[Rfam]
RNA: mir-3154 microRNA precursor family
RNA sequence: AGGACCCUCCUUCCCAACCCUGGCUCCCACUCAUCCCUGUCACAUCAAAGGAGGCAAAAGGGGAACUGGGAGCUGAGAGGGAAUCA
Numbered sequence: 001a002g003g004a005c006c007c008u009c010c011u012u013c014c015c016a017a018c019c020c021u022g023g024c025u026c027c028c029a030c031u032c033a034u035c036c037c038u039g040u041c042a043c044a045u046c047a048a049a050g051g052a053g054g055c056a057a058a059a060g061g062g063g064a065a066c067u068g069g070g071a072g073c074u075g076a077g078a079g080g081g082a083a084u085c086a
Stems, first nucleotide, its partner, number of pairs: 002085002005081005012076002023073007031064002034062003038056004043051001